Shown here is a 74-nucleotide RNA sequence from Ceyx cyanopectus, a member of the family "tRNA". Pairs were carried over by alignment from the consensus structure, which is taken from published work. The match comes from Rfam's covariance-model search (53 bits). It is annotated as a transfer RNA. Rfam links the family to the GO term triplet codon-amino acid adaptor activity.
RNA sequence: AAGAAAGAAGCAUAAGUGGUUUGAUGUGGUUGGCUUGAAACCAGCUGGUGAAGGUUCGACUCCUUCCUUUCUUG
Numbered sequence: 001a002a003g004a005a006a007g008a009a010g011c012a013u014a015a016g017u018g019g020u021u022u023g024a025u026g027u028g029g030u031u032g033g034c035u036u037g038a039a040a041c042c043a044g045c046u047g048g049u050g051a052a053g054g055u056u057c058g059a060c061u062c063c064u065u066c067c068u069u070u071c072u073u074g
Stems, first nucleotide, its partner, number of pairs: 001073007010027004029045005050066005